RNA sequence: UUGUGUGCAGGAUGGAGAUGCACAACCAGCGUAUCGCGUAGCCUGACAGUACGCCUGCAGCCCGCUUCGCGCCCAGCUUCGGCCAAGGUGACGAUCGCAGGUGGAAGCCUCAAGGCCAACGGCCGAUGCUCCAACCGAGCGACACCUGACACGAAUCCCGCGACGACCCGGCUGCCUGAGCCUUUCGGCUGUCACGCCCGCACCAUGCCUGGUUGAUUCCUCCUCCUGUGGAGCUGCAACGGCAGUCGCUCAAGCGCCUGCAGGAGACGUAGUCGCGGCACGCCCCCGGGCCUGCUGCUGGACACGAAGACCGGAUCUACACCGGUUUCGAUACGACCCCGUGCACCCUUCUUUCGA
Number, nucleotide and partner (000 for none) at each position: 001u000002u000003g000004u000005g000006u000007g000008c000009a000010g000011g000012a000013u000014g223015g222016a221017g220018a000019u000020g000021c000022a000023c215024a214025a213026c212027c211028a210029g208030c207031g206032u205033a000034u000035c000036g201037c200038g199039u000040a078041g077042c076043c000044u000045g000046a000047c000048a000049g000050u000051a000052c000053g000054c000055c000056u000057g000058c000059a000060g000061c000062c000063c000064g000065c000066u000067u000068c000069g000070c000071g000072c000073c000074c000075a000076g042077c041078u040079u000080c000081g000082g000083c000084c000085a000086a000087g198088g197089u196090g195091a000092c000093g000094a000095u000096c000097g000098c000099a000100g000101g000102u000103g000104g000105a000106a000107g000108c000109c000110u000111c000112a000113a000114g000115g000116c000117c000118a000119a000120c000121g000122g000123c000124c000125g000126a000127u000128g000129c000130u000131c000132c000133a000134a000135c000136c000137g000138a000139g000140c000141g000142a000143c000144a000145c000146c000147u000148g000149a000150c000151a000152c000153g000154a000155a000156u000157c000158c000159c000160g000161c000162g000163a000164c000165g000166a000167c000168c000169c000170g000171g000172c000173u000174g000175c000176c000177u000178g000179a000180g000181c000182c000183u000184u000185u000186c000187g000188g000189c000190u000191g000192u000193c000194a000195c090196g089197c088198c087199c038200g037201c036202a000203c000204c000205a032206u031207g030208c029209c000210u028211g027212g026213u025214u024215g023216a000217u000218u000219c000220c017221u016222c015223c014224u265225c264226c263227u262228g261229u260230g259231g258232a000233g000234c000235u000236g000237c000238a000239a000240c000241g000242g000243c000244a000245g000246u000247c000248g000249c000250u000251c000252a000253a000254g000255c000256g000257c000258c231259u230260g229261c228262a227263g226264g225265a224266g000267a000268c335269g334270u333271a332272g303273u302274c301275g298276c297277g296278g295279c000280a000281c000282g291283c290284c289285c000286c000287c000288g000289g284290g283291c282292c000293u000294g000295c278296u277297g276298c275299u000300g000301g274302a273303c272304a000305c000306g000307a000308a328309g327310a326311c325312c324313g323314g322315a000316u000317c000318u000319a000320c000321a000322c314323c313324g312325g311326u310327u309328u308329c000330g000331a000332u271333a270334c269335g268336a000337c000338c000339c000340c000341g000342u000343g000344c000345a000346c000347c000348c000349u000350u000351c000352u000353u000354u000355c000356g000357a000
rne-II RNA: a 357-nucleotide sequence from Pseudomonas oryzihabitans. Taxonomically the source falls in Pseudomonas (Bacteria, Gammaproteobacteria, Pseudomonadales, Pseudomonadaceae).